[Rfam]
RNA sequence: AUCCCCUGGCAAUGGGCAAGGAGAUACCUGAUUGGUGGUGUUGCUCUUAUAUCAAUCAGGGGCAAAGCAGAUGUACAGUCCUCAGUUCAUCCCAGUUUGAUGCCUCUGGCAGUGGUCAGAGUUGUUUCCUGCCUGAGACACAUAA
Dot-bracket structure: ..((((((....(((...(((.((((((........))))))...)))...)))..))))))......................(((...........(.(......((..(((........)))..)).).)...)))......
The family of this 145-nucleotide RNA sequence from Pipistrellus kuhlii is "Small nucleolar RNA SNORA48". For this family Rfam cites "Mapping to nucleotide resolution of pseudouridine residues in large subunit ribosomal RNAs from representative eukaryotes, prokaryotes, archaebacteria, mitochondria and chloroplasts" (Ofengand and Bakin, J Mol Biol, 1997). Rfam 15.1 lists 2,109 matches to the family in 150 species. Gene Ontology terms of the family: nucleolus and RNA processing. About the family: The snoRNA ACA 48 has been identified to guide pseudouridylation of the residue U3797 in the 28S rRNA subunit.